[Rfam]
RNA: FMN riboswitch aptamer (RFN element)
Organism: Alloiococcus otitis
RNA sequence: AUUCGUCUUCAGGGGCAGGGUGGAAAUCCCGACCGGUGGUAAAGUCCACGAGCGUUAAGCUGAACUGGUGCAACUCCAGUACCGACAGUAAAGUCUGGAUAAAGAAGAUGAGG
Numbered sequence: 001a002u003u004c005g006u007c008u009u010c011a012g013g014g015g016c017a018g019g020g021u022g023g024a025a026a027u028c029c030c031g032a033c034c035g036g037u038g039g040u041a042a043a044g045u046c047c048a049c050g051a052g053c054g055u056u057a058a059g060c061u062g063a064a065c066u067g068g069u070g071c072a073a074c075u076c077c078a079g080u081a082c083c084g085a086c087a088g089u090a091a092a093g094u095c096u097g098g099a100u101a102a103a104g105a106a107g108a109u110g111a112g113g
Base pairs, nucleotide, nucleotide: 003111004110005109006108007107008106009105010104018030019029020028032094033093034084035083036049037048038047039046044082045081052060053059064080065079066078067077068076086097087096088095